[Rfam]
RNA sequence: CACCAGUCUAGCGGAAUCCUUUCUGCACAGACUAGGCUCAUGGACGAUCAGUGUGCGGAAAUGCUUCUGCUAAAUUGGUG
Number, nucleotide and partner (000 for none) at each position: 001c080002a079003c000004c077005a076006g075007u074008c000009u072010a071011g070012c069013g068014g067015a066016a065017u000018c063019c000020u061021u060022u059023c058024u057025g056026c055027a054028c053029a052030g000031a000032c051033u050034a000035g000036g000037c000038u000039c000040a000041u000042g000043g000044a000045c000046g000047a000048u000049c000050a033051g032052u029053g028054u027055g026056c025057g024058g023059a022060a021061a020062u000063g018064c000065u016066u015067c014068u013069g012070c011071u010072a009073a000074a007075u006076u005077g004078g000079u002080g001

The record is an 80-nucleotide RNA from Clupea harengus, which matches "mir-147 microRNA precursor family" in Rfam.